[Rfam]
RNA sequence: GUUGAAGCAAUAUGAUGAGCAUUACUGGCUGGAGCCCCAAAGAGGCACACGUGUGUGUAUGUCCGUGUGAAUCUGUGCCUGUCUAUGCAUGAAUACGUGUGUCUGGGAGUGAGAAUGUGUGUGAAUGUGUGUAGGGAACUAGUUAUGUGCUUUCUUUUGGACGAUGACAGUCAAACUGAUAAGAUCUGAUUGCUUC
Number, nucleotide and partner (000 for none) at each position: 001g000002u000003u000004g196005a195006a194007g193008c192009a191010a190011u000012a000013u000014g186015a185016u184017g000018a000019g000020c000021a000022u000023u000024a000025c000026u173027g172028g171029c170030u169031g168032g000033a000034g000035c000036c107037c106038c105039a104040a000041a102042g000043a100044g000045g098046c097047a000048c000049a094050c000051g000052u091053g090054u089055g088056u087057g000058u000059a000060u000061g083062u000063c000064c000065g078066u077067g076068u075069g074070a000071a000072u000073c000074u069075g068076u067077g066078c065079c000080u000081g000082u000083c061084u000085a000086u000087g056088c055089a054090u053091g052092a000093a000094u049095a000096c000097g046098u045099g000100u043101g000102u041103c000104u039105g038106g037107g036108a000109g122110u121111g120112a000113g000114a000115a000116u000117g000118u000119g000120u111121g110122u109123g000124a000125a000126u141127g140128u000129g000130u137131g000132u000133a000134g000135g000136g000137a130138a000139c000140u127141a126142g000143u000144u166145a165146u164147g000148u000149g162150c000151u160152u159153u000154c000155u000156u000157u000158u000159g152160g151161a000162c149163g000164a146165u145166g144167a000168c031169a030170g029171u028172c027173a026174a000175a000176c000177u000178g000179a000180u000181a000182a000183g000184a016185u015186c014187u000188g000189a000190u010191u009192g008193c007194u006195u005196c004

This 196-nucleotide RNA from Orycteropus afer belongs to the Rfam family "Small nucleolar RNA ZL1".
NCBI's taxonomy places the organism under Eukaryota, Opisthokonta, Gnathostomata, Afrotheria, Orycteropus afer.
A reference for the family is Kishore et al. (2013), "Insights into snoRNA biogenesis and processing from PAR-CLIP of snoRNA core proteins and small RNA sequencing", Genome Biol.
The family's RNA type in Rfam is C/D-box small nucleolar RNA.
Rfam links the family to the GO terms nucleolus and RNA processing.
Pairs were carried over by alignment from the consensus structure, which was predicted with RNAfold.